[Rfam]
Background
The record is a 135-nucleotide RNA, which matches "Small nucleolar RNA SNORA48" in Rfam. Its Rfam clan is "SNORA48 clan". The snoRNA ACA 48 has been identified to guide pseudouridylation of the residue U3797 in the 28S rRNA subunit. Gene Ontology terms of the family: nucleolus and RNA processing. Rfam classes the family as an H/ACA-box small nucleolar RNA. Rfam's curators put it in the seed alignment.
RNA sequence: UGUCCCUGACCUGGGUAGAGUGGCAUCUGGUUGGUGAUGCCCAUCUCAUAUCAGCCAGGGACAAAGCAACUCCUUGUUCAUCCCAGCUUGGCUUUUGAUCCGUGCCCAUGCCUGGUUCAUGCCUUGGACACAUAG
Dot-bracket structure: ((((((((..((((...(((.((((((........))))))...)))...)))).))))))))...........((((((.........(((...(((.(((.((....)).))).))).))).)))))).....
Numbered sequence: 001u002g003u004c005c006c007u008g009a010c011c012u013g014g015g016u017a018g019a020g021u022g023g024c025a026u027c028u029g030g031u032u033g034g035u036g037a038u039g040c041c042c043a044u045c046u047c048a049u050a051u052c053a054g055c056c057a058g059g060g061a062c063a064a065a066g067c068a069a070c071u072c073c074u075u076g077u078u079c080a081u082c083c084c085a086g087c088u089u090g091g092c093u094u095u096u097g098a099u100c101c102g103u104g105c106c107c108a109u110g111c112c113u114g115g116u117u118c119a120u121g122c123c124u125u126g127g128a129c130a131c132a133u134a135g
Stems, first nucleotide, its partner, number of pairs: 001063008011054004018047003022041006075130006090123003096119003100115003104111002